Source information
t44 RNA: a 121-nucleotide RNA from Steroidobacter denitrificans. The base pairs follow the family's consensus structure, which was predicted with LocARNA. Rfam describes the family as follows. This family consists of a number of bacterial RNA genes of between 135 and 170 bases in length.
RNA sequence: AUUCUCACUUCAUCAACUCUCACACCUGACCGGCACAUGCGACGGGGUGCCCACCCUGGAAUGCGCGGUUCGAACGCGCGAAUCCGGACGGGUCGUCGCAUGGGGCGGGUGGAGGCUCAAC
Numbered sequence: 001a002u003u004c005u006c007a008c009u010u011c012a013u014c015a016a017c018u019c020u021c022a023c024a025c026c027u028g029a030c031c032g033g034c035a036c037a038u039g040c041g042a043c044g045g046g047g048u049g050c051c052c053a054c055c056c057u058g059g060a061a062u063g064c065g066c067g068g069u070u071c072g073a074a075c076g077c078g079c080g081a082a083u084c085c086g087g088a089c090g091g092g093u094c095g096u097c098g099c100a101u102g103g104g105g106c107g108g109g110u111g112g113a114g115g116c117u118c119a120a121c
Stems, first nucleotide, its partner, number of pairs: 023111006030105002036102009049093004